[Rfam]
RNA sequence: AGCCUGUGAUGAGCCUUACUCUUCUGACAUCUCCAAUGAAAGUGUUGCUUAAAGCAGCACUUGAUUAUUGUUUAAUGGCUGAGGCUU
Numbered sequence: 001a002g003c004c005u006g007u008g009a010u011g012a013g014c015c016u017u018a019c020u021c022u023u024c025u026g027a028c029a030u031c032u033c034c035a036a037u038g039a040a041a042g043u044g045u046u047g048c049u050u051a052a053a054g055c056a057g058c059a060c061u062u063g064a065u066u067a068u069u070g071u072u073u074a075a076u077g078g079c080u081g082a083g084g085c086u087u
Stems, first nucleotide, its partner, number of pairs: 001086004042060001045057004

Source information
Small nucleolar RNA SNORD60: an 87-nucleotide sequence from Scyliorhinus torazame. Rfam classes the family as a C/D-box small nucleolar RNA. The family's consensus secondary structure was predicted with PFOLD. For this family Rfam cites "Purified box C/D snoRNPs are able to reproduce site-specific 2'-O-methylation of target RNA in vitro" (Galardi et al., Mol Cell Biol, 2002).